[Rfam]
RNA sequence: GGUUCGGGAGCCGGGCGGUGGGACGCCGGGCACGAAUGGAACCGCGCCCACAUAAGGUCGCAAGCACGCCGCGGAUCGGGCCCCGACGAUCCCCCGC
Numbered sequence: 001g002g003u004u005c006g007g008g009a010g011c012c013g014g015g016c017g018g019u020g021g022g023a024c025g026c027c028g029g030g031c032a033c034g035a036a037u038g039g040a041a042c043c044g045c046g047c048c049c050a051c052a053u054a055a056g057g058u059c060g061c062a063a064g065c066a067c068g069c070c071g072c073g074g075a076u077c078g079g080g081c082c083c084c085g086a087c088g089a090u091c092c093c094c095c096g097c
Stems, first nucleotide, its partner, number of pairs: 001043005010031003014027004070096002073093001074091005
The record is a 97-nucleotide RNA from Paracoccus sphaerophysae, which matches "Rhodo-rpoB RNA" in Rfam. The family's consensus secondary structure is taken from published work. By type it is a cis-regulatory element. Taxonomically the source falls in Paracoccus (Bacteria, Pseudomonadota, Alphaproteobacteria, Paracoccaceae).